[Rfam]
RNA: Guanidine-II riboswitch aptamer (mini-ykkC)
Organism: Atlantibacter hermannii
RNA sequence: GCUGCGGGACGACCCGCAACACAGCGCUAUUCAUGACGCAGGACGACCUGC
Numbered sequence: 001g002c003u004g005c006g007g008g009a010c011g012a013c014c015c016g017c018a019a020c021a022c023a024g025c026g027c028u029a030u031u032c033a034u035g036a037c038g039c040a041g042g043a044c045g046a047c048c049u050g051c
Base pairs, nucleotide, nucleotide: 001020003018004017005016006015007014008013038051039050040049041048042047